Source information:
U11 spliceosomal RNA: a 128-nucleotide RNA sequence from Cajanus cajan. The base pairs follow the family's consensus structure, which is taken from published work. It is annotated as a spliceosomal small nuclear RNA. A search with the family's covariance model found it, with a score of 64 bits.
Nucleotides: 128
Base pairs, nucleotide, nucleotide: 008080009079010078011077012076014028015027016026017025029051030050031049032048033047035045036044037043052075053074054073055072056071057070058069100124101123102122103121104120106118107117108116109115
Number, partner (000 for none) and nucleotide at each position: 001000a002000u003000a004000a005000a006000g007000g008080g009079u010078c011077a012076g013000u014028u015027g016026g017025c018000u019000a020000a021000a022000u023000a024000u025017g026016c027015c028014a029051u030050g031049u032048c033047c034000u035045c036044u037043u038000u039000u040000g041000a042000u043037a044036a045035g046000u047033g048032g049031a050030u051029a052075c053074u054073g055072u056071a057070u058069g059000g060000c061000u062000a063000u064000c065000a066000a067000g068000a069058c070057a071056u072055a073054u074053g075052g076012c077011u078010g079009a080008c081000a082000a083000a084000a085000u086000u087000u088000c089000u090000g091000g092000a093000g094000c095000u096000c097000a098000a099000a100124a101123g102122g103121g104120u105000u106118g107117g108116c109115u110000u111000g112000c113000u114000u115109a116108g117107c118106c119000c120104a121103c122102c123101c124100u125000a126000c127000a128000u